[Rfam]
RNA: mir-17 microRNA precursor family
RNA sequence: UCUCUUGUGUUAAGGUGCAUCUAGUGCAGUUAGUGAAGCAGCUUAGAAUCUACUGCCCUAAAUGCCCCUUCUGGCACAGGCU
Numbered sequence: 001u002c003u004c005u006u007g008u009g010u011u012a013a014g015g016u017g018c019a020u021c022u023a024g025u026g027c028a029g030u031u032a033g034u035g036a037a038g039c040a041g042c043u044u045a046g047a048a049u050c051u052a053c054u055g056c057c058c059u060a061a062a063u064g065c066c067c068c069u070u071c072u073g074g075c076a077c078a079g080g081c082u
Base pairs, nucleotide, nucleotide: 004079005078010073013069014068015067017065018064019063020062022060023059024058026056027055029054031052032051033050